[Rfam]
RNA sequence: AGCUGUCGUGGUGAGCACAAAGCAAACUAUUCUUUCGCCUUUUACUAAAGAAUACCGUGUGCACGCCACACUAAGCAGCAUACCCUAAUUUUUAAAGGGUGUCUCCUUCUUGUGAGAAGGC
Numbered sequence: 001a002g003c004u005g006u007c008g009u010g011g012u013g014a015g016c017a018c019a020a021a022g023c024a025a026a027c028u029a030u031u032c033u034u035u036c037g038c039c040u041u042u043u044a045c046u047a048a049a050g051a052a053u054a055c056c057g058u059g060u061g062c063a064c065g066c067c068a069c070a071c072u073a074a075g076c077a078g079c080a081u082a083c084c085c086u087a088a089u090u091u092u093u094a095a096a097g098g099g100u101g102u103c104u105c106c107u108u109c110u111u112g113u114g115a116g117a118a119g120g121c
Base pairs, nucleotide, nucleotide: 003078004077005076006075009068010067011066012065013064015062016061017060018059019058028054029053030052031051032050033049034048035047102120103119104118106116107115